[Rfam]
RNA sequence: UGCGAGACCCAUCAAAGGAGUAGUUCCCUGACUAGAAGUUACUUUACCAUAUUAUGAAUUA
Number, nucleotide and partner (000 for none) at each position: 001u000002g000003c000004g000005a000006g000007a000008c000009c000010c000011a000012u000013c000014a000015a000016a000017g045018g044019a043020g042021u041022a040023g039024u038025u037026c000027c035028c000029u000030g000031a000032c000033u000034a000035g027036a000037a025038g024039u023040u022041a021042c020043u019044u018045u017046a000047c000048c000049a000050u000051a000052u000053u000054a000055u000056g000057a000058a000059u000060u000061a000

The family of this 61-nucleotide RNA sequence from Malus baccata is "Plastid-psbN 5UTR RNA". A search with the family's covariance model found it, with a score of 62 bits. From the family's description: Plastid psbN is a non-coding RNA (ncRNA) recognised in plastids. It was reported as a conserved 11 stem-loop in the prime untranslated region (5UTR) of psbN genes. The family's consensus secondary structure was predicted with LocARNA. Taxonomically the source falls in Malus (Eukaryota, Embryophyta, eudicotyledons, fabids).